Source information: Shown here is a 128-nucleotide RNA sequence from Kryptolebias marmoratus, a member of the family "Small nucleolar RNA SNORA77". Its family is annotated with RNA processing and nucleolus in the Gene Ontology. It scores 48 bits against the family's covariance model. ACA63 (SNORA77) is a member of the H/ACA class of snoRNAs that guide the sites of modification of uridines to pseudouridines. This snoRNA was identified by computational screening and its expression in mouse experimentally verified by Northern blot and primer extension analysis. ACA63 is proposed to guide the pseudouridylation of 18S rRNA U814. The source organism's lineage runs through Eukaryota, Gnathostomata, Actinopteri, Atherinomorphae and Kryptolebias.

RNA sequence: GCAGACACACUCUGUUCUUCGCUGUGCACGCCAGCCUGGGACUUUUUCUGUCUGCGACACGAACACGCAGAAUGUAUCACUGCUGGCUUUACGAGAAGGCCAGCGUCAGUAUGUUCUGCUACAACUGG
Numbered sequence: 001g002c003a004g005a006c007a008c009a010c011u012c013u014g015u016u017c018u019u020c021g022c023u024g025u026g027c028a029c030g031c032c033a034g035c036c037u038g039g040g041a042c043u044u045u046u047u048c049u050g051u052c053u054g055c056g057a058c059a060c061g062a063a064c065a066c067g068c069a070g071a072a073u074g075u076a077u078c079a080c081u082g083c084u085g086g087c088u089u090u091a092c093g094a095g096a097a098g099g100c101c102a103g104c105g106u107c108a109g110u111a112u113g114u115u116c117u118g119c120u121a122c123a124a125c126u127g128g
Base pairs, nucleotide, nucleotide: 001055002054003053004052005051006050014042015041016040017039018038022034023033024032067119068118069117070116071115072114073113075111076110077108079106080105083103084102085101086100087099